The record is an 83-nucleotide sequence from Leucocoprinus leucothites, which matches "tRNA" in Rfam. It is annotated as a transfer RNA. The family's consensus secondary structure is taken from published work.

RNA sequence: GGACCCGUAGCUCAGCGGUAGAGCGUGAGAUUCCAGCUUCGAGAGGUUCCUCAAGGUCAUCUGUUCAAUCCAGGUCGGGUUCA
Numbered sequence: 001g002g003a004c005c006c007g008u009a010g011c012u013c014a015g016c017g018g019u020a021g022a023g024c025g026u027g028a029g030a031u032u033c034c035a036g037c038u039u040c041g042a043g044a045g046g047u048u049c050c051u052c053a054a055g056g057u058c059a060u061c062u063g064u065u066c067a068a069u070c071c072a073g074g075u076c077g078g079g080u081u082c083a
Stems, first nucleotide, its partner, number of pairs: 001082007010024004026053004059075005